[Rfam]
RNA sequence: GCUGUUUUCGGGUGGAUGACUUCGCAAUUUUAAUACCAUCUAAGAUCUGACUGAAAAUUGCACAGUAUCCAUCUGUAAUCCGCC
Numbered sequence: 001g002c003u004g005u006u007u008u009c010g011g012g013u014g015g016a017u018g019a020c021u022u023c024g025c026a027a028u029u030u031u032a033a034u035a036c037c038a039u040c041u042a043a044g045a046u047c048u049g050a051c052u053g054a055a056a057a058u059u060g061c062a063c064a065g066u067a068u069c070c071a072u073c074u075g076u077a078a079u080c081c082g083c084c
Base pairs, nucleotide, nucleotide: 009075010074011073012072013071014070015069016068017067019066020065024061025060026059027058028057029056030055031054